[Rfam]
The record is a 52-nucleotide RNA, which matches "Glutamine riboswitch aptamer (glnA leader)" in Rfam. The sequence is in the family's curated seed alignment. Rfam links the family to the GO term glutamine binding. A reference for the family is Ames and Breaker (2011), "Bacterial aptamers that selectively bind glutamine", RNA Biol.
RNA sequence: AACGUUCAUCUUUUUUUAAAAGACGGAAGUAGCGAAAGCGAAGGAACGCACC
Numbered sequence: 001a002a003c004g005u006u007c008a009u010c011u012u013u014u015u016u017u018a019a020a021a022g023a024c025g026g027a028a029g030u031a032g033c034g035a036a037a038g039c040g041a042a043g044g045a046a047c048g049c050a051c052c
Stems, first nucleotide, its partner, number of pairs: 003048005009023005026049001032039002